The family of this 91-nucleotide RNA from Salibacterium salarium is "c-di-GMP-I-GGC riboswitch aptamer".

[Rfam]
RNA sequence: CCAGAAAAAGGCAAAUCUGUUGAAAAACAGGUACGCAAAAUCACAGGUCUAAGGUUCAAAGUAGACAACUAGGGCGGCUGGGUUGCCUGGG
Numbered sequence: 001c002c003a004g005a006a007a008a009a010g011g012c013a014a015a016u017c018u019g020u021u022g023a024a025a026a027a028c029a030g031g032u033a034c035g036c037a038a039a040a041u042c043a044c045a046g047g048u049c050u051a052a053g054g055u056u057c058a059a060a061g062u063a064g065a066c067a068a069c070u071a072g073g074g075c076g077g078c079u080g081g082g083u084u085g086c087c088u089g090g091g
Stems, first nucleotide, its partner, number of pairs: 001091001003088002011036002016031006034077001039084004044080003047075003

Source information: Pairs were carried over by alignment from the consensus structure, which is taken from published work. The organism belongs to Salibacterium, within Bacteria. For this family Rfam cites "Structural and biochemical characterization of linear dinucleotide analogues bound to the c-di-GMP-I aptamer" (Smith et al., Biochemistry, 2012).